Rfam assigns this 113-nucleotide sequence from Trichonephila clavipes to the family "Potassium channel RNA editing signal". By type it is a cis-regulatory element. On this family, see Bhalla et al., Nat Struct Mol Biol 2004: "Control of human potassium channel inactivation by editing of a small mRNA hairpin". Lineage of the source: Eukaryota > Arthropoda > Arachnida > Entelegynae > Trichonephila.
RNA sequence: CCAGGUACGGAGACAUGGUGCCAGACACCCCUACAGGUAAAAUCGUGGGUGGUAUCUGCUCCUUGAGCGGUGUACUGGUGAUUGCUUUACCAGUACCCGUCAUCGUCUCCAAC
Numbered sequence: 001c002c003a004g005g006u007a008c009g010g011a012g013a014c015a016u017g018g019u020g021c022c023a024g025a026c027a028c029c030c031c032u033a034c035a036g037g038u039a040a041a042a043u044c045g046u047g048g049g050u051g052g053u054a055u056c057u058g059c060u061c062c063u064u065g066a067g068c069g070g071u072g073u074a075c076u077g078g079u080g081a082u083u084g085c086u087u088u089a090c091c092a093g094u095a096c097c098c099g100u101c102a103u104c105g106u107c108u109c110c111a112a113c
Base pairs, nucleotide, nucleotide: 004109007106008105009104010103012101013100014099017096020094021093036076037075038074039073048062049061